[Rfam]
RNA sequence: UAAGCUUAUCUGUGAGGAUAGGUUGAACGACAGGCGUCAGCAGAAGCCAUAGUACUUAUUCGCUUAAGAGGAUAAGGAAGGGC
Numbered sequence: 001u002a003a004g005c006u007u008a009u010c011u012g013u014g015a016g017g018a019u020a021g022g023u024u025g026a027a028c029g030a031c032a033g034g035c036g037u038c039a040g041c042a043g044a045a046g047c048c049a050u051a052g053u054a055c056u057u058a059u060u061c062g063c064u065u066a067a068g069a070g071g072a073u074a075a076g077g078a079a080g081g082g083c
Base pairs, nucleotide, nucleotide: 001025002024004023005022006021007020008019009018010017011016037044038043046083047082048081055076056075057074058073059072060071
RNA: Group II catalytic intron D1-D4-1